[Rfam]
RNA sequence: UUCUUAUCCAGAGAGACGGAGGGACUGGCCCGACGAUGUCUCAGCAACCAGCUGCUUCUAGCAAGGUGCUAAUUCCAGAAGGGAACUCCCCUUUAAAGAUAAGAU
Numbered sequence: 001u002u003c004u005u006a007u008c009c010a011g012a013g014a015g016a017c018g019g020a021g022g023g024a025c026u027g028g029c030c031c032g033a034c035g036a037u038g039u040c041u042c043a044g045c046a047a048c049c050a051g052c053u054g055c056u057u058c059u060a061g062c063a064a065g066g067u068g069c070u071a072a073u074u075c076c077a078g079a080a081g082g083g084a085a086c087u088c089c090c091c092u093u094u095a096a097a098g099a100u101a102a103g104a105u
Stems, first nucleotide, its partner, number of pairs: 002104007013042005021031003025078004043070004048066002051062003074097001079094005

A member of the RNA family "SAM riboswitch aptamer (S box leader)" from Oceanobacillus oncorhynchi, 105 nucleotides long. Rfam links the family to the GO term regulation of gene expression. Lineage of the source: Bacteria > Bacilli > Caryophanales > Bacillaceae > Oceanobacillus.